The family of this 129-nucleotide sequence from Podarcis lilfordi is "Small Cajal body specific RNA 4". For this family Rfam cites "Cajal body-specific small nuclear RNAs: a novel class of 2'-O-methylation and pseudouridylation guide RNAs" (Darzacq et al., EMBO J, 2002). Gene Ontology terms of the family: nucleolus, Cajal body and RNA processing. The base pairs follow the family's consensus structure, which was predicted with RNAfold.
RNA sequence: CCUAGAGGAUUAAGAAGGCAGAGCCUGUACAGCUGGGCUCUGUCGAUACCAUCCUCUUAGAGAAACACGAUGGAGAGAGGGGUUCAGCUUGCAGAAAGAGUGGCGACCUCACUGUGCCAUCGGACAAAC
Numbered sequence: 001c002c003u004a005g006a007g008g009a010u011u012a013a014g015a016a017g018g019c020a021g022a023g024c025c026u027g028u029a030c031a032g033c034u035g036g037g038c039u040c041u042g043u044c045g046a047u048a049c050c051a052u053c054c055u056c057u058u059a060g061a062g063a064a065a066c067a068c069g070a071u072g073g074a075g076a077g078a079g080g081g082g083u084u085c086a087g088c089u090u091g092c093a094g095a096a097a098g099a100g101u102g103g104c105g106a107c108c109u110c111a112c113u114g115u116g117c118c119a120u121c122g123g124a125c126a127a128a129c
Stems, first nucleotide, its partner, number of pairs: 002060002004057006017044003021040006068122004078113002080110003084106002090102003
Description
Rfam's curators write: scaRNAs are a specific class of small nuclear RNAs which localise to the Cajal bodies and guide the modification of RNA polymerase II transcribed spliceosomal RNAs U1, U2, U4, U5 and U12. ACA26 belongs to the H/ACA box class of guide RNAs as it has the predicted hairpin-hinge-hairpin-tail structure, conserved H/ACA-box motifs and is found associated with GAR1. The source organism's lineage runs through Eukaryota, Vertebrata, Teleostomi, Lacertidae and Podarcis.